[Rfam]
RNA: TPP riboswitch aptamer (THI element)
Organism: Sphingomonadales bacterium
RNA sequence: CUUCAUCCCCGGGGGAGCGCUUCAUCCGCGCUUGAGAGGGAGGCAGGAGCCUCCGACCCGCUGAACCUGAUCCGGUUGACACCGGCGUAGGGAGGGAGCGGGCCUCUCCC
Numbered sequence: 001c002u003u004c005a006u007c008c009c010c011g012g013g014g015g016a017g018c019g020c021u022u023c024a025u026c027c028g029c030g031c032u033u034g035a036g037a038g039g040g041a042g043g044c045a046g047g048a049g050c051c052u053c054c055g056a057c058c059c060g061c062u063g064a065a066c067c068u069g070a071u072c073c074g075g076u077u078g079a080c081a082c083c084g085g086c087g088u089a090g091g092g093a094g095g096g097a098g099c100g101g102g103c104c105u106c107u108c109c110c
Stems, first nucleotide, its partner, number of pairs: 006097004010060004015054001016032005040053004066091004072085004
Dot-bracket structure: .....((((((((.((((((.......))))).......((((......)))))..)))).....((((..((((......))))..))))..)))).............